[Rfam]
Shown here is a 92-nucleotide RNA sequence from Paracoccus alcaliphilus, a member of the family "Proteo-phage-1 RNA".
RNA sequence: CCCCGGCCGCGCGGGGCCCUCGAUCUAAGAUCAGGGAUAGCGCGGAUGCAGAUCAGCGGGUCGUGCUGCAGUCAUGAUCAACGCCCGCAGCC
Number, nucleotide and partner (000 for none) at each position: 001c015002c014003c013004c000005g000006g000007c045008c044009g043010c042011g041012c000013g003014g002015g001016g000017c036018c035019c034020u000021c000022g000023a000024u000025c000026u000027a000028a000029g000030a000031u000032c000033a000034g019035g018036g017037a000038u000039a000040g000041c011042g010043c009044g008045g007046a000047u070048g069049c068050a067051g066052a000053u000054c000055a000056g088057c087058g086059g085060g084061u000062c000063g000064u000065g000066c051067u050068g049069c048070a047071g000072u000073c000074a000075u000076g000077a000078u000079c000080a000081a000082c000083g000084c060085c059086c058087g057088c056089a000090g000091c000092c000

The match comes from Rfam's covariance-model search (54 bits). Taxonomically the source falls in Paracoccus (Bacteria, Alphaproteobacteria, Rhodobacterales, Paracoccaceae).